[Rfam]
Nucleotides: 069
Base pairs, nucleotide, nucleotide: 002064003063004062005061006060007059008058009057010056011055017036018035019034020033021032022031023030038052039051040050041049042048
Number, partner (000 for none) and nucleotide at each position: 001000c002064c003063g004062c005061c006060u007059c008058c009057g010056g011055c012000g013000a014000c015000a016000a017036g018035g019034u020033g021032g022031c023030c024000g025000a026000u027000u028000g029000u030023g031022g032021c033020u034019g035018c036017u037000u038052u039051c040050c041049c042048u043000g044000a045000a046000c047000a048042g049041g050040g051039g052038a053000u054000a055011g056010c057009c058008g059007g060006g061005g062004g063003u064002g065000u066000u067000u068000u069000a
This 69-nucleotide RNA sequence belongs to the Rfam family "DUF3800-IX RNA". By type it is a small RNA. Rfam describes the family as follows. Actinobacteria, Firmicutes (1 example), Nitrospirae, Proteobacteria, Verrucomicrobia (1 example).